[Rfam]
Shown here is a 77-nucleotide sequence from Kluyvera cryocrescens, a member of the family "Repression of heat shock gene expression (ROSE) element". Lineage of the source: Bacteria > Pseudomonadati > Pseudomonadota > Enterobacterales > Kluyvera. This family represents a 5' UTR cis-regulatory element found in heat shock mRNAs and is known as the ROSE (repression of heat shock gene expression) element.

RNA sequence: UCGGGCUUCAACGACCUGUCCAUGAUGGAAGGUUUUUAAUUUCUCGCUGAUUUUCAGGAGCUAUUUAACUAUGCGUA
Dot-bracket structure: ............(((((.(((.....))))))))....(...(((.(((.....)))))).....)...........
Numbered sequence: 001u002c003g004g005g006c007u008u009c010a011a012c013g014a015c016c017u018g019u020c021c022a023u024g025a026u027g028g029a030a031g032g033u034u035u036u037u038a039a040u041u042u043c044u045c046g047c048u049g050a051u052u053u054u055c056a057g058g059a060g061c062u063a064u065u066u067a068a069c070u071a072u073g074c075g076u077a
Stems, first nucleotide, its partner, number of pairs: 013034005019029003039066001043060003047057003